This 144-nucleotide sequence from Micromonospora rosaria belongs to the Rfam family "c-di-AMP riboswitch aptamer (ydaO/yuaA leader)". Gene Ontology terms of the family: regulation of gene expression and cyclic-di-AMP binding. NCBI's taxonomy places the organism under Bacteria, Actinomycetes, Micromonosporales, Micromonosporaceae, Micromonospora.
RNA sequence: CGUGCCGACCCGCUCAAUCGUCGACGACGAACCGGGGACCCAGUGCACGUGUGGGGUGAAUCCGCGGGCCCACGGCUCGCGGUAGGGCGAAUUCUUCCCGCCCGAAUCCGUCAGCUAACCCGGUAGGCGGUAUCGGAAGGAGAG
Numbered sequence: 001c002g003u004g005c006c007g008a009c010c011c012g013c014u015c016a017a018u019c020g021u022c023g024a025c026g027a028c029g030a031a032c033c034g035g036g037g038a039c040c041c042a043g044u045g046c047a048c049g050u051g052u053g054g055g056g057u058g059a060a061u062c063c064g065c066g067g068g069c070c071c072a073c074g075g076c077u078c079g080c081g082g083u084a085g086g087g088c089g090a091a092u093u094c095u096u097c098c099c100g101c102c103c104g105a106a107u108c109c110g111u112c113a114g115c116u117a118a119c120c121c122g123g124u125a126g127g128c129g130g131u132a133u134c135g136g137a138a139g140g141a142g143a144g
Base pairs, nucleotide, nucleotide: 011129012128013127014126018030019029020028031124032123033122034121035120036119041053042052054109055108056107062082063081064080065079066078067077085103086102087101088100